[Rfam]
The record is a 201-nucleotide RNA from Paraburkholderia tagetis, which matches "Group II catalytic intron D1-D4-6" in Rfam.
RNA sequence: AGAGUCAUACGUUGAAGGUCUAGCCAGCCACAACGGCCUCGAGUCAUGCGUGUGCGUCCGUAAGGACGUAGGCGAAGUGUUGGCAGAGGUACGCGUGGGCCAGGUAUCGAGCUGCGAAAUCCAUUCGCCGCCAUCGACCGGCUCGUGUAGCACUCGACGAUCUUCGAGAUGGACGUCGAAAGCUGCCGUCGUCGCACAGCC
Numbered sequence: 001a002g003a004g005u006c007a008u009a010c011g012u013u014g015a016a017g018g019u020c021u022a023g024c025c026a027g028c029c030a031c032a033a034c035g036g037c038c039u040c041g042a043g044u045c046a047u048g049c050g051u052g053u054g055c056g057u058c059c060g061u062a063a064g065g066a067c068g069u070a071g072g073c074g075a076a077g078u079g080u081u082g083g084c085a086g087a088g089g090u091a092c093g094c095g096u097g098g099g100c101c102a103g104g105u106a107u108c109g110a111g112c113u114g115c116g117a118a119a120u121c122c123a124u125u126c127g128c129c130g131c132c133a134u135c136g137a138c139c140g141g142c143u144c145g146u147g148u149a150g151c152a153c154u155c156g157a158c159g160a161u162c163u164u165c166g167a168g169a170u171g172g173a174c175g176u177c178g179a180a181a182g183c184u185g186c187c188g189u190c191g192u193c194g195c196a197c198a199g200c201c
Stems, first nucleotide, its partner, number of pairs: 010035005017029003021169001024166001037089004043084004047079002049074003053070007109193001111192002114189003127186002130183002133148001154179006161172002
NCBI's taxonomy places the organism under Bacteria, Betaproteobacteria, Burkholderiales, Burkholderiaceae, Paraburkholderia. Group II introns are found in rRNA, tRNA and mRNA of organelles in fungi, plants and protists, and also in mRNA in bacteria.